The record is a 155-nucleotide sequence from Paenibacillus zeisoli, which matches "FMN riboswitch aptamer (RFN element)" in Rfam. NCBI's taxonomy places the organism under Bacteria, Bacillota, Bacilli, Caryophanales, Paenibacillus. Rfam's curators write: The RFN element is a highly conserved domain that is found frequently in the 5'-untranslated regions of prokaryotic mRNAs that encode for flavin mononucleotide (FMN) biosynthesis and transport proteins.

RNA sequence: AUGGAUCUUCGGGGGCAGGUGAGAUUCCUGACCGGCGGUGAGGGUUCGUACGUGAACCUCAAGCCCGCGACUCGUCAUGAUUGCUCAAGCAAAGUGGCGACUGACUUGGUGUGAUUCCAAGGCCGACGGUAAAGUCCGGAUGGGAGGAGAUCAUA
Numbered sequence: 001a002u003g004g005a006u007c008u009u010c011g012g013g014g015g016c017a018g019g020u021g022a023g024a025u026u027c028c029u030g031a032c033c034g035g036c037g038g039u040g041a042g043g044g045u046u047c048g049u050a051c052g053u054g055a056a057c058c059u060c061a062a063g064c065c066c067g068c069g070a071c072u073c074g075u076c077a078u079g080a081u082u083g084c085u086c087a088a089g090c091a092a093a094g095u096g097g098c099g100a101c102u103g104a105c106u107u108g109g110u111g112u113g114a115u116u117c118c119a120a121g122g123c124c125g126a127c128g129g130u131a132a133a134g135u136c137c138g139g140a141u142g143g144g145a146g147g148a149g150a151u152c153a154u155a
Stems, first nucleotide, its partner, number of pairs: 004152007017029003031135002033125002035068004063123002072100006105121005127138003